[Rfam]
Shown here is a 100-nucleotide RNA from Methanimicrococcus blatticola, a member of the family "Pyrrolysine insertion sequence 1". A search with the family's covariance model found it, with a score of 90 bits. Its family is annotated with pyrrolysine incorporation in the Gene Ontology. The organism belongs to Methanimicrococcus, within Archaea. A reference for the family is Theil Have et al. (2013), "Effects of using coding potential, sequence conservation and mRNA structure conservation for predicting pyrroly-sine containing genes", BMC Bioinformatics.

RNA sequence: UAGGGCCCCGAAACCUCACUUUCCGCACAGGGUAACAUCAGUGCAGACUGUGCAGGCGGUAUGCUCCCCUCCGACAGCCACGAAGUUUCACAGCUCAACG
Numbered sequence: 001u002a003g004g005g006c007c008c009c010g011a012a013a014c015c016u017c018a019c020u021u022u023c024c025g026c027a028c029a030g031g032g033u034a035a036c037a038u039c040a041g042u043g044c045a046g047a048c049u050g051u052g053c054a055g056g057c058g059g060u061a062u063g064c065u066c067c068c069c070u071c072c073g074a075c076a077g078c079c080a081c082g083a084a085g086u087u088u089c090a091c092a093g094c095u096c097a098a099c100g
Stems, first nucleotide, its partner, number of pairs: 010089005016083002040060001042058003